[Rfam]
RNA sequence: AGAACAGGGAAGCCAGUUGGCGUGGCUCAGUCCAAGUCUGACGACCUGAGGAAUGCCUGGACUGAGCCAUGCUACUGGCUUCCCUGGUCU
Numbered sequence: 001a002g003a004a005c006a007g008g009g010a011a012g013c014c015a016g017u018u019g020g021c022g023u024g025g026c027u028c029a030g031u032c033c034a035a036g037u038c039u040g041a042c043g044a045c046c047u048g049a050g051g052a053a054u055g056c057c058u059g060g061a062c063u064g065a066g067c068c069a070u071g072c073u074a075c076u077g078g079c080u081u082c083c084c085u086g087g088u089c090u
Base pairs, nucleotide, nucleotide: 001090002089003088005086006085007084008083009082010081011080012079013078014077015076016075017074019073020072021071022070023069024068025067026066027065028064029063030062031061032060033059034058036056037055

Rfam assigns this 90-nucleotide RNA from Pongo pygmaeus to the family "mir-1269 microRNA precursor family".
NCBI's taxonomy places the organism under Eukaryota, Metazoa, Eutheria, Haplorrhini, Pongo.
The family's consensus secondary structure was predicted with RNAalifold.